[Rfam]
RNA sequence: AAUUUAGCCAGUGGUUGGCUGAUCGCGAUUCAAAUAAUUUGUGCUUUGGUUAUUUGCUUGCGUCUCUAUUCUAU
Numbered sequence: 001a002a003u004u005u006a007g008c009c010a011g012u013g014g015u016u017g018g019c020u021g022a023u024c025g026c027g028a029u030u031c032a033a034a035u036a037a038u039u040u041g042u043g044c045u046u047u048g049g050u051u052a053u054u055u056g057c058u059u060g061c062g063u064c065u066c067u068a069u070u071c072u073a074u
Base pairs, nucleotide, nucleotide: 004022005021006020007019008018009017010016011015024062025061026060027059031056032055033054034053035052036051037050038049039048

Rfam assigns this 74-nucleotide sequence from Chlorobium phaeobacteroides to the family "Chlorobi-RRM RNA".
Rfam classes the family as a cis-regulatory element.